[Rfam]
RNA: TPP riboswitch aptamer (THI element)
Organism: Pseudoroseicyclus tamaricis
RNA sequence: CGCCUCACCUCGGGGGACCCGGCUGCAAUGCCGGGCUGAGAUGCGGACACCCGCGAACCCGUUGAACCUGAACCGGUUAGAACCGGCGGAGGGAAGGUACGAGCGCUCCAC
Numbered sequence: 001c002g003c004c005u006c007a008c009c010u011c012g013g014g015g016g017a018c019c020c021g022g023c024u025g026c027a028a029u030g031c032c033g034g035g036c037u038g039a040g041a042u043g044c045g046g047a048c049a050c051c052c053g054c055g056a057a058c059c060c061g062u063u064g065a066a067c068c069u070g071a072a073c074c075g076g077u078u079a080g081a082a083c084c085g086g087c088g089g090a091g092g093g094a095a096g097g098u099a100c101g102a103g104c105g106c107u108c109c110a111c
Base pairs, nucleotide, nucleotide: 007098008097009096010095011061012060013059014058018035019034020033021032022031023030043054044053045052046051067092068091069090073086074085075084076083